[Rfam]
RNA sequence: AAGGUCUCCUACGCCACAGCCAUGGACUGGUUCAUUGCUGUGUGCUUUGCCUUU
Numbered sequence: 001a002a003g004g005u006c007u008c009c010u011a012c013g014c015c016a017c018a019g020c021c022a023u024g025g026a027c028u029g030g031u032u033c034a035u036u037g038c039u040g041u042g043u044g045c046u047u048u049g050c051c052u053u054u
Stems, first nucleotide, its partner, number of pairs: 001054003008049001011046001013045002015042006022035005
RNA: Editing element of GABA-3 exon 9